[Rfam]
RNA sequence: GGUCAGUCAUCGCCGAGUCCCCAAUGGCGCGAGCCAGGGGAGCCGGGGACCCACAGUCCCUGGGGUGAAUCGGGUCCCUUUCCGGAGGGAACCGUAGGAGACCUUCCUGCUCCGAACCCGUCAGCUAACCCGGUAGGCGAGAAGGAAGGAAAGG
Numbered sequence: 001g002g003u004c005a006g007u008c009a010u011c012g013c014c015g016a017g018u019c020c021c022c023a024a025u026g027g028c029g030c031g032a033g034c035c036a037g038g039g040g041a042g043c044c045g046g047g048g049a050c051c052c053a054c055a056g057u058c059c060c061u062g063g064g065g066u067g068a069a070u071c072g073g074g075u076c077c078c079u080u081u082c083c084g085g086a087g088g089g090a091a092c093c094g095u096a097g098g099a100g101a102c103c104u105u106c107c108u109g110c111u112c113c114g115a116a117c118c119c120g121u122c123a124g125c126u127a128a129c130c131c132g133g134u135a136g137g138c139g140a141g142a143a144g145g146a147a148g149g150a151a152a153g154g
Stems, first nucleotide, its partner, number of pairs: 011139004018041005042134006052062002063119003071094003097113004

Record summary:
A member of the RNA family "c-di-AMP riboswitch aptamer (ydaO/yuaA leader)" from Streptomyces netropsis, 154 nucleotides long. Gene Ontology terms of the family: cyclic-di-AMP binding and regulation of gene expression. About the family: This family represents a conserved RNA structure found upstream of the ydaO and yuaA genes in Bacillus subtilis and related genes in other bacteria.